The record is an 84-nucleotide sequence from Geodermatophilus dictyosporus, which matches "ZMP/ZTP riboswitch aptamer (pfl RNA motif)" in Rfam. Gene Ontology terms of the family: regulation of purine nucleotide biosynthetic process and one-carbon metabolic process. Taxonomically the source falls in Geodermatophilus (Bacteria, Bacillati, Actinomycetota, Actinomycetes).
RNA sequence: GGUCCGGGCCGUGACUGGCGCAUCGAGGUGGGGCACCACCGGGGAGCGGCCUGCACUCCCCCGCCGGGCGCCUGGGCAGAGCCG
Numbered sequence: 001g002g003u004c005c006g007g008g009c010c011g012u013g014a015c016u017g018g019c020g021c022a023u024c025g026a027g028g029u030g031g032g033g034c035a036c037c038a039c040c041g042g043g044g045a046g047c048g049g050c051c052u053g054c055a056c057u058c059c060c061c062c063g064c065c066g067g068g069c070g071c072c073u074g075g076g077c078a079g080a081g082c083c084g
Base pairs, nucleotide, nucleotide: 003055005053006052007051008050009049010048011047012046015043016042017072018071019070020069021068028039029038030037031036061079063077064076065075